Rfam assigns this 63-nucleotide sequence from Pelomonas sp. Root1444 to the family "Betaproteobacteria toxic small RNA".
On this family, see Sass et al., Sci Rep 2017: "Identification of small RNAs abundant in Burkholderia cenocepacia biofilms reveal putative regulators with a potential role in carbon and iron metabolism".
The family's consensus secondary structure was predicted with WAR.
Lineage of the source: Bacteria > Pseudomonadati > Betaproteobacteria > Burkholderiales > Roseateles.
From the family's description: Overexpression in amino aid rich medium attenuates growth, suggesting role in repressing amino acid intake and metabolism.
RNA sequence: UGUCUCCUCCACCGCCUCCAUGGUGGAUUCAACCCGAGCUUGCAAGAGCUCGGGUUUUUUUUG
Numbered sequence: 001u002g003u004c005u006c007c008u009c010c011a012c013c014g015c016c017u018c019c020a021u022g023g024u025g026g027a028u029u030c031a032a033c034c035c036g037a038g039c040u041u042g043c044a045a046g047a048g049c050u051c052g053g054g055u056u057u058u059u060u061u062u063g
Base pairs, nucleotide, nucleotide: 008027009026010025011024012023013022014021031056032055033054034053035052036051037050038049